[Rfam]
RNA sequence: UGCAAGUAUUUUACGAUUAAGAAGCAACUGUCUCUUGUUCAAAUGUAUUAAUCU
Numbered sequence: 001u002g003c004a005a006g007u008a009u010u011u012u013a014c015g016a017u018u019a020a021g022a023a024g025c026a027a028c029u030g031u032c033u034c035u036u037g038u039u040c041a042a043a044u045g046u047a048u049u050a051a052u053c054u
Stems, first nucleotide, its partner, number of pairs: 018037005024031002
Shown here is a 54-nucleotide RNA sequence from Corymbia citriodora, a member of the family "Plastid-rps18 3UTR RNA". Plastid rps18 is a non-coding RNA (ncRNA) present in plastids. It was identified as a short stem-loop motif in the 3 prime untranslate region (3UTR) of rps18 gene. NCBI's taxonomy places the organism under Eukaryota, Myrtoideae, Eucalypteae, Corymbia, Corymbia citriodora. A reference for the family is Richter et al. (2023), "Retrograde signaling in plants: A critical review focusing on the GUN pathway and beyond", Plant Commun. It scores 70 bits against the family's covariance model.